The family of this 134-nucleotide sequence from Mus spicilegus is "Small nucleolar RNA SNORA17".
A reference for the family is Ofengand and Bakin (1997), "Mapping to nucleotide resolution of pseudouridine residues in large subunit ribosomal RNAs from representative eukaryotes, prokaryotes, archaebacteria, mitochondria and chloroplasts", J Mol Biol.
Clan: SNORA17 clan.
The base pairs follow the family's consensus structure, which was predicted with RNAalifold.
Its family is annotated with RNA processing and nucleolus in the Gene Ontology.
From the family's description: snoRNA ACA 17 belongs to the H/ACA family of snoRNAs and is predicted to guide pseudouridylation of the 28S rRNA at positions U4659 and U4598. It shares the same host gene together with ACA43.

RNA sequence: UCUUCCCCUAGAGUCAUUGCAGGUGUGGAGGCUGUGUCACACGUGUGUCAAUAGGUGGCAGAGAGGAGAGUGGCUAUGUCUAUAUGCUCAGUAUUCUGACCUAUGAAUAUCUGAACGACUAACAUUCUCUGAAA
Numbered sequence: 001u002c003u004u005c006c007c008c009u010a011g012a013g014u015c016a017u018u019g020c021a022g023g024u025g026u027g028g029a030g031g032c033u034g035u036g037u038c039a040c041a042c043g044u045g046u047g048u049c050a051a052u053a054g055g056u057g058g059c060a061g062a063g064a065g066g067a068g069a070g071u072g073g074c075u076a077u078g079u080c081u082a083u084a085u086g087c088u089c090a091g092u093a094u095u096c097u098g099a100c101c102u103a104u105g106a107a108u109a110u111c112u113g114a115a116c117g118a119c120u121a122a123c124a125u126u127c128u129c130u131g132a133a134a
Stems, first nucleotide, its partner, number of pairs: 002061002005058002007055004013049001015047001019046003024041005070129001072127002075124001077122001085117002088114004092109005